[Rfam]
RNA sequence: GCGGUGGUGAGCCACAGCGGGUCGCUGGUCAGCACGGCCUCGUCGCCGAGGUGGUCGCCGUCGGUGACCACGCCGAGCAGGUUGGUGUCACCGUACUUGCCCGUGCUCAGCCGGUUGAUCCGGCCGUGGGCGAUGAUGAACACCUCCUCGAUCGGGGUGCCCUCCUCCACGAGCACCUCACCGGCGCGGAACUCCCGCACCUGGAAGCGCGAGGCGAGCUCCCGCAGCACCGCCAGGUCCUCGAAGUCCCGCAGUGCCGGGAUCUCCCGGAGCGUCUCCGGGACGAUCUGCACGUCGUCCGCCCCGCCCUGCACGAAGCCGACCCGGCCGCGCCCCACCGCGAGCGACAGCCGCCGGUUGACCCGGUAGGUGCCGCCGGCGACGUUGACCCACGGCAGGUUCUUCAUCAGCCAGCGUGAACUGAUGCCCUGCAUCUGUGGCGUGGACUUGGUCGUGGUCGCCAGGUUGCGCGCGGCGCGGGUACUGAGGCUCUGCUGGUCGGGAGCU
Numbered sequence: 001g002c003g004g005u006g007g008u009g010a011g012c013c014a015c016a017g018c019g020g021g022u023c024g025c026u027g028g029u030c031a032g033c034a035c036g037g038c039c040u041c042g043u044c045g046c047c048g049a050g051g052u053g054g055u056c057g058c059c060g061u062c063g064g065u066g067a068c069c070a071c072g073c074c075g076a077g078c079a080g081g082u083u084g085g086u087g088u089c090a091c092c093g094u095a096c097u098u099g100c101c102c103g104u105g106c107u108c109a110g111c112c113g114g115u116u117g118a119u120c121c122g123g124c125c126g127u128g129g130g131c132g133a134u135g136a137u138g139a140a141c142a143c144c145u146c147c148u149c150g151a152u153c154g155g156g157g158u159g160c161c162c163u164c165c166u167c168c169a170c171g172a173g174c175a176c177c178u179c180a181c182c183g184g185c186g187c188g189g190a191a192c193u194c195c196c197g198c199a200c201c202u203g204g205a206a207g208c209g210c211g212a213g214g215c216g217a218g219c220u221c222c223c224g225c226a227g228c229a230c231c232g233c234c235a236g237g238u239c240c241u242c243g244a245a246g247u248c249c250c251g252c253a254g255u256g257c258c259g260g261g262a263u264c265u266c267c268c269g270g271a272g273c274g275u276c277u278c279c280g281g282g283a284c285g286a287u288c289u290g291c292a293c294g295u296c297g298u299c300c301g302c303c304c305c306g307c308c309c310u311g312c313a314c315g316a317a318g319c320c321g322a323c324c325c326g327g328c329c330g331c332g333c334c335c336c337a338c339c340g341c342g343a344g345c346g347a348c349a350g351c352c353g354c355c356g357g358u359u360g361a362c363c364c365g366g367u368a369g370g371u372g373c374c375g376c377c378g379g380c381g382a383c384g385u386u387g388a389c390c391c392a393c394g395g396c397a398g399g400u401u402c403u404u405c406a407u408c409a410g411c412c413a414g415c416g417u418g419a420a421c422u423g424a425u426g427c428c429c430u431g432c433a434u435c436u437g438u439g440g441c442g443u444g445g446a447c448u449u450g451g452u453c454g455u456g457g458u459c460g461c462c463a464g465g466u467u468g469c470g471c472g473c474g475g476c477g478c479g480g481g482u483a484c485u486g487a488g489g490c491u492c493u494g495c496u497g498g499u500c501g502g503g504a505g506c507u
Stems, first nucleotide, its partner, number of pairs: 006390003010386003015381001017328002020325002022322003026318001029316002036309002039306001042305001045302002048299002051228002054225002057222001060221001063107003072100001074099004079094001081092001083090001114219003119214002123210002127206001128202003132198001135195001140193001146189002153184001155182002158175002162171001231294002234290006246284006254273002259266001329342004351379003355375003361371003391431002394428004403418001405416001437476002440473001442471003446467001447465006477506002481500001484497001487496002

The record is a 507-nucleotide RNA sequence from Streptacidiphilus jiangxiensis, which matches "Saccharopolyspora sRNA 350" in Rfam. Its family is annotated with regulation of secondary metabolite biosynthetic process in the Gene Ontology. Pairs were carried over by alignment from the consensus structure, which was predicted with RNAfold. For this family Rfam cites "Prediction and characterization of small non-coding RNAs related to secondary metabolites in Saccharopolyspora erythraea" (Liu et al., PLoS One, 2013).